Rfam assigns this 46-nucleotide sequence from Streptomyces sp. Rer75 to the family "L31-Actinobacteria ribosomal protein leader". NCBI's taxonomy places the organism under Bacteria, Bacillati, Kitasatosporales, Streptomycetaceae, Streptomyces. On this family, see Eckert and Weinberg, BMC Microbiol 2020: "Discovery of 20 novel ribosomal leader candidates in bacteria and archaea".
RNA sequence: UCGGCCCCGGUUCACGACGUGCAAACCCGCCCGUCGACCCGGAGCC
Number, nucleotide and partner (000 for none) at each position: 001u000002c000003g046004g045005c044006c000007c042008c041009g040010g039011u000012u000013c000014a000015c036016g035017a034018c033019g032020u000021g030022c029023a000024a000025a000026c000027c000028c000029g022030c021031c000032c019033g018034u017035c016036g015037a000038c000039c010040c009041g008042g007043a000044g005045c004046c003